[Rfam]
RNA sequence: UGACGUCUUCAGGGCGGGGCGAAACUCCCCACCGGCGGUAGGCGCGAUCAGCGCGAGCCCGCGAGCGCUUCCGUGACACGGAAGGUCAGCAGAUCCGGUCGAAUGCCGGAGCCGACGGUCACAGUCCGGAUGAAAGAAGACGGCG
Numbered sequence: 001u002g003a004c005g006u007c008u009u010c011a012g013g014g015c016g017g018g019g020c021g022a023a024a025c026u027c028c029c030c031a032c033c034g035g036c037g038g039u040a041g042g043c044g045c046g047a048u049c050a051g052c053g054c055g056a057g058c059c060c061g062c063g064a065g066c067g068c069u070u071c072c073g074u075g076a077c078a079c080g081g082a083a084g085g086u087c088a089g090c091a092g093a094u095c096c097g098g099u100c101g102a103a104u105g106c107c108g109g110a111g112c113c114g115a116c117g118g119u120c121a122c123a124g125u126c127c128g129g130a131u132g133a134a135a136g137a138a139g140a141c142g143g144c145g
Base pairs, nucleotide, nucleotide: 004142005141006140007139008138009137010136017029018028019027031125032124033114034113035062036061037060038059057112058111065090066089094110095109096108097107098106116128117127118126

FMN riboswitch aptamer (RFN element): a 145-nucleotide sequence from Lysobacter sp. TY2-98. The family's consensus secondary structure is taken from published work.